Small nucleolar RNA snR37: a 385-nucleotide RNA from Saccharomyces uvarum. On this family, see Schattner et al., Nucleic Acids Res 2004: "Genome-wide searching for pseudouridylation guide snoRNAs: analysis of the Saccharomyces cerevisiae genome". The base pairs follow the family's consensus structure, which was predicted with WAR. Its Rfam clan is "SNORA64 clan". The sequence is in the family's curated seed alignment.
RNA sequence: AACAUCAGUAGUGGUUAAUACUAUCUUUUGAUAAUAUUAAUUUCAUUAUACCAUAGAAACCUAAAGAUUGAAUAAUUUUUGUUCUUCAUGUUAUACAACUUGGGCAAUGAAGAGCUUGCUCUUUUGCGUCCAUUUUGUUUAAUAAGUUAAUACUGGAACAAGAAUAAUUUAAAUCAUUUCAUACAACCCAUAGCUGAAUGAAUUUUGACCACUCCUAAACAAAGUAGCUACAAUUUUCAUUUCGUUUCCGGUUUCUUAGAUCAAAUAUUAUUCUGAAGAAGUUCCCUGAUUACAAAUCAGGGAAAGGUUCGCGUUUUUAGAGAAUUGCAUAAUGCAAUUUGAGAGUUUAAAUUCCGGUGCGACUCUUCUUCAUGAUAAGACAGUU
Numbered sequence: 001a002a003c004a005u006c007a008g009u010a011g012u013g014g015u016u017a018a019u020a021c022u023a024u025c026u027u028u029u030g031a032u033a034a035u036a037u038u039a040a041u042u043u044c045a046u047u048a049u050a051c052c053a054u055a056g057a058a059a060c061c062u063a064a065a066g067a068u069u070g071a072a073u074a075a076u077u078u079u080u081g082u083u084c085u086u087c088a089u090g091u092u093a094u095a096c097a098a099c100u101u102g103g104g105c106a107a108u109g110a111a112g113a114g115c116u117u118g119c120u121c122u123u124u125u126g127c128g129u130c131c132a133u134u135u136u137g138u139u140u141a142a143u144a145a146g147u148u149a150a151u152a153c154u155g156g157a158a159c160a161a162g163a164a165u166a167a168u169u170u171a172a173a174u175c176a177u178u179u180c181a182u183a184c185a186a187c188c189c190a191u192a193g194c195u196g197a198a199u200g201a202a203u204u205u206u207g208a209c210c211a212c213u214c215c216u217a218a219a220c221a222a223a224g225u226a227g228c229u230a231c232a233a234u235u236u237u238c239a240u241u242u243c244g245u246u247u248c249c250g251g252u253u254u255c256u257u258a259g260a261u262c263a264a265a266u267a268u269u270a271u272u273c274u275g276a277a278g279a280a281g282u283u284c285c286c287u288g289a290u291u292a293c294a295a296a297u298c299a300g301g302g303a304a305a306g307g308u309u310c311g312c313g314u315u316u317u318u319a320g321a322g323a324a325u326u327g328c329a330u331a332a333u334g335c336a337a338u339u340u341g342a343g344a345g346u347u348u349a350a351a352u353u354c355c356g357g358u359g360c361g362a363c364u365c366u367u368c369u370u371c372a373u374g375a376u377a378a379g380a381c382a383g384u385u
Stems, first nucleotide, its partner, number of pairs: 008049006014041007022033004055256007066175004070170004075165011089144005095138001097136002101132005109124006145154003196242007205233003209227001211225003268378005274372008282304009306364003310361005316351006322340007